[Rfam]
RNA sequence: UGAUCCUUUAACACAGCCCCGUGAGGUUGAGAAGGAAACGGUUAUAGAGGGAGUAGUUUACUCUCUUGAACGGUAUCCUCAUGUCAACUCAGGCAUGAGGAUAUUUUUUU
Numbered sequence: 001u002g003a004u005c006c007u008u009u010a011a012c013a014c015a016g017c018c019c020c021g022u023g024a025g026g027u028u029g030a031g032a033a034g035g036a037a038a039c040g041g042u043u044a045u046a047g048a049g050g051g052a053g054u055a056g057u058u059u060a061c062u063c064u065c066u067u068g069a070a071c072g073g074u075a076u077c078c079u080c081a082u083g084u085c086a087a088c089u090c091a092g093g094c095a096u097g098a099g100g101a102u103a104u105u106u107u108u109u110u
Stems, first nucleotide, its partner, number of pairs: 004036006014029005041071003046066005053061002072105014
PyrR binding site: a 110-nucleotide sequence from Priestia taiwanensis. Rfam's curators write: This family represents the PyrR binding site and terminator structure. This RNA structure is found upstream of a variety of genes involved in pyrimidine biosynthesis and transport. The alignment also includes a portion of the antiterminator structure. The family's consensus secondary structure is taken from published work. It scores 55 bits against the family's covariance model. The organism belongs to Priestia, within Bacteria. Rfam classes the family as a cis-regulatory element.